[Rfam]
RNA sequence: CUUCCCAUUUGACUGUCACACGGGGCUUAGCAGUAGCUUUCCAUGGUUAUGCUCGUGGGAAAGAUAAACGCUGCCGUGAUCUGAAGAGGGCUGGCUUUGUAGUGUCCUCCUUCUAUAUGAAAUGGCUGUACAGAAAAUG
Numbered sequence: 001c002u003u004c005c006c007a008u009u010u011g012a013c014u015g016u017c018a019c020a021c022g023g024g025g026c027u028u029a030g031c032a033g034u035a036g037c038u039u040u041c042c043a044u045g046g047u048u049a050u051g052c053u054c055g056u057g058g059g060a061a062a063g064a065u066a067a068a069c070g071c072u073g074c075c076g077u078g079a080u081c082u083g084a085a086g087a088g089g090g091c092u093g094g095c096u097u098u099g100u101a102g103u104g105u106c107c108u109c110c111u112u113c114u115a116u117a118u119g120a121a122a123u124g125g126c127u128g129u130a131c132a133g134a135a136a137a138u139g
Stems, first nucleotide, its partner, number of pairs: 004059004016046003073126004093112002

Annotation
The record is a 139-nucleotide RNA from Chrysochloris asiatica, which matches "Small nucleolar RNA SNORA29" in Rfam. Rfam's curators write: ACA29 is a member of the H/ACA class of snoRNA that guide the sites of modification of uridines to pseudouridines. By type it is an H/ACA-box small nucleolar RNA. The family is grouped with related families in Rfam's "SNORA20 clan". Its family is annotated with RNA processing and nucleolus in the Gene Ontology. The family's consensus secondary structure was predicted with PFOLD. Rfam 15.1 lists 960 matches to the family in 621 species. Lineage of the source: Eukaryota > Deuterostomia > Vertebrata > Sarcopterygii > Chrysochloris.